[Rfam]
RNA sequence: UGGCCCUUUUUGGCACUAGCACAUUUUUGCUGUUCUCUGUAUACGCCGAGCAAUUAUGUGUAGUGCCAAUAUGGGAGA
Numbered sequence: 001u002g003g004c005c006c007u008u009u010u011u012g013g014c015a016c017u018a019g020c021a022c023a024u025u026u027u028u029g030c031u032g033u034u035c036u037c038u039g040u041a042u043a044c045g046c047c048g049a050g051c052a053a054u055u056a057u058g059u060g061u062a063g064u065g066c067c068a069a070u071a072u073g074g075g076a077g078a
Stems, first nucleotide, its partner, number of pairs: 004075003008071001010069008019061006027053005
This 78-nucleotide RNA from Ophiophagus hannah belongs to the Rfam family "mir-96 microRNA precursor family". For this family Rfam cites "Embryonic stem cell-specific MicroRNAs" (Houbaviy et al., Dev Cell, 2003). Rfam's curators put it in the seed alignment. Gene Ontology terms of the family: RISC complex and miRNA-mediated post-transcriptional gene silencing. Pairs were carried over by alignment from the consensus structure, which was predicted with RNAalifold.